[Rfam]
RNA sequence: GAUGCAUCUAUUGCUUGCCAAGCCGGGUCGUUACCGCGACCCGGGGAGGGCGGCGAAAAGAGGAAUCC
Numbered sequence: 001g002a003u004g005c006a007u008c009u010a011u012u013g014c015u016u017g018c019c020a021a022g023c024c025g026g027g028u029c030g031u032u033a034c035c036g037c038g039a040c041c042c043g044g045g046g047a048g049g050g051c052g053g054c055g056a057a058a059a060g061a062g063g064a065a066u067c068c
Stems, first nucleotide, its partner, number of pairs: 011056003015053005023044009

Shown here is a 68-nucleotide RNA, a member of the family "ilvH RNA".
A search with the family's covariance model found it, with a score of 83 bits.
Pairs were carried over by alignment from the consensus structure, which is taken from published work.